[Rfam]
RNA sequence: CGAACUUAAACCGUAAACUCUCGUAUAUUUUCGGGAAUAAGGCCCGAAAGUUUCUACCUAAUGACCGAGAAUCAUUUGGCUACGAGAGAGAAAGGGUAUCUA
Number, nucleotide and partner (000 for none) at each position: 001c000002g000003a000004a000005c000006u000007u000008a000009a000010a000011c000012c000013g000014u000015a000016a000017a000018c088019u087020c086021u085022c084023g083024u082025a081026u000027a000028u000029u049030u048031u047032c046033g045034g044035g043036a000037a000038u000039a000040a000041g000042g000043c035044c034045c033046g032047a031048a030049a029050g000051u000052u000053u000054c000055u000056a000057c000058c078059u000060a076061a075062u074063g073064a072065c000066c000067g000068a000069g000070a000071a000072u064073c063074a062075u061076u060077u000078g058079g000080c000081u025082a024083c023084g022085a021086g020087a019088g018089a000090g000091a000092a000093a000094g000095g000096g000097u000098a000099u000100c000101u000102a000